[Rfam]
RNA sequence: GGGCUUAUGAUGAAAUUUUUUAAUAUCUUAGCGGAUUUCGGUGAGACCUUAUGAUCUGAAUGUUACACACACUGAAGCCC
Numbered sequence: 001g002g003g004c005u006u007a008u009g010a011u012g013a014a015a016u017u018u019u020u021u022a023a024u025a026u027c028u029u030a031g032c033g034g035a036u037u038u039c040g041g042u043g044a045g046a047c048c049u050u051a052u053g054a055u056c057u058g059a060a061u062g063u064u065a066c067a068c069a070c071a072c073u074g075a076a077g078c079c080c
Base pairs, nucleotide, nucleotide: 001080002079003078004077005076

This 80-nucleotide RNA from Malus domestica belongs to the Rfam family "Small nucleolar RNA R11/Z151". The family's RNA type in Rfam is C/D-box small nucleolar RNA.